[Rfam]
This 97-nucleotide RNA sequence from Oryza meyeriana belongs to the Rfam family "Small nucleolar RNA Z103". Rfam 15.1 lists 2,844 matches to the family in 233 species. On this family, see Chen et al., Nucleic Acids Res 2003: "The high diversity of snoRNAs in plants: identification and comparative study of 120 snoRNA genes from Oryza sativa". The family's RNA type in Rfam is C/D-box small nucleolar RNA. It scores 87 bits against the family's covariance model. Taxonomically the source falls in Oryza meyeriana (Eukaryota, Tracheophyta, Petrosaviidae, Oryza). Its family is annotated with RNA processing and nucleolus in the Gene Ontology.

RNA sequence: AUGGAAGUGAGGAUCCUUUCCCCGGCUUAUCGACUAUGAUUAUACUCUGUGCAAAUGUAAUCCCUCUUCGGAAGAUUAAGCCAGAAAUCUGAUCCAU
Number, nucleotide and partner (000 for none) at each position: 001a097002u096003g095004g094005a093006a000007g000008u000009g000010a000011g000012g000013a000014u000015c000016c000017u000018u000019u000020c000021c000022c000023c000024g000025g000026c000027u000028u000029a000030u000031c000032g000033a000034c000035u000036a000037u000038g000039a000040u000041u000042a000043u000044a000045c000046u000047c000048u000049g000050u000051g000052c000053a000054a000055a000056u000057g000058u000059a000060a000061u000062c000063c000064c000065u000066c000067u000068u000069c000070g000071g000072a000073a000074g000075a000076u000077u000078a000079a000080g000081c000082c000083a000084g000085a000086a000087a000088u000089c000090u000091g000092a000093u005094c004095c003096a002097u001